[Rfam]
RNA sequence: UGUGCAAUUUUUAUUUUCACAGGGUCUCUUUUGAGUCCCAAAGUAAAAUUUUUGGAAUCUUCGCAAGAAGGUA
Numbered sequence: 001u002g003u004g005c006a007a008u009u010u011u012u013a014u015u016u017u018c019a020c021a022g023g024g025u026c027u028c029u030u031u032u033g034a035g036u037c038c039c040a041a042a043g044u045a046a047a048a049u050u051u052u053u054g055g056a057a058u059c060u061u062c063g064c065a066a067g068a069a070g071g072u073a
Stems, first nucleotide, its partner, number of pairs: 022039003026035003057072006
RNA: SmY spliceosomal RNA